[Rfam]
RNA sequence: GAGUCCCGGGGAACAUUCAACGCUGUCGGUGAGUUUCUGGCCUUGAAAAACCAUCGAGCGUUGAAUGUACCCCGUUCCUC
Numbered sequence: 001g002a003g004u005c006c007c008g009g010g011g012a013a014c015a016u017u018c019a020a021c022g023c024u025g026u027c028g029g030u031g032a033g034u035u036u037c038u039g040g041c042c043u044u045g046a047a048a049a050a051c052c053a054u055c056g057a058g059c060g061u062u063g064a065a066u067g068u069a070c071c072c073c074g075u076u077c078c079u080c
Base pairs, nucleotide, nucleotide: 001080002079003078007074008073014067015066016065017064018063019062020061021060022059026057027056028055029054030053031052033051034050035049036048
RNA: mir-181 microRNA precursor family
Organism: Scleropages formosus